The family of this 110-nucleotide RNA from Bacillus sp. FJAT-27231 is "SAM riboswitch aptamer (S box leader)". Pairs were carried over by alignment from the consensus structure, which is taken from published work. NCBI's taxonomy places the organism under Bacteria, Bacillota, Bacilli, Caryophanales, Bacillus. The SAM riboswitch is found upstream of a number of genes which code for proteins involved in methionine or cysteine biosynthesis in Gram-positive bacteria. Its Rfam clan is "SAM clan".

RNA sequence: CUCUUAUUGAGAGCGGCGGAGGGAUUAGGCCCGAUGAAGCCCGGCAACCUUCAGACAAUUGUCUGAGACGGUGCUAAUUCCUGCAGGUAGACGAACCUGAAAGAUAAGAG
Numbered sequence: 001c002u003c004u005u006a007u008u009g010a011g012a013g014c015g016g017c018g019g020a021g022g023g024a025u026u027a028g029g030c031c032c033g034a035u036g037a038a039g040c041c042c043g044g045c046a047a048c049c050u051u052c053a054g055a056c057a058a059u060u061g062u063c064u065g066a067g068a069c070g071g072u073g074c075u076a077a078u079u080c081c082u083g084c085a086g087g088u089a090g091a092c093g094a095a096c097c098u099g100a101a102a103g104a105u106a107a108g109a110g
Stems, first nucleotide, its partner, number of pairs: 001110008013042001015041003021032003026083004043075004048071002050067004079102001084099005